[Rfam]
RNA: mir-8834 microRNA precursor family
Organism: Canis lupus
RNA sequence: AGGAACAACCCCAGUGGUGGCAGCCCAGCUCUGGAGCCUGGAUUCAGCUCCUGCAGCAACUACAGAGCUCUCCAUCUACCAGGGCCUGGCGGCUCCGGGGUGGG
Numbered sequence: 001a002g003g004a005a006c007a008a009c010c011c012c013a014g015u016g017g018u019g020g021c022a023g024c025c026c027a028g029c030u031c032u033g034g035a036g037c038c039u040g041g042a043u044u045c046a047g048c049u050c051c052u053g054c055a056g057c058a059a060c061u062a063c064a065g066a067g068c069u070c071u072c073c074a075u076c077u078a079c080c081a082g083g084g085c086c087u088g089g090c091g092g093c094u095c096c097g098g099g100g101u102g103g104g
Base pairs, nucleotide, nucleotide: 001094002093006088007087009084010083011082016076017075018074019073020072022071023070027069028068029067030066031065032064033063035061038056039055040054
Dot-bracket structure: ((...((.(((....(((((.((...(((((((.(..(((.............)))....).)))))))))))))).....)))..))....))..........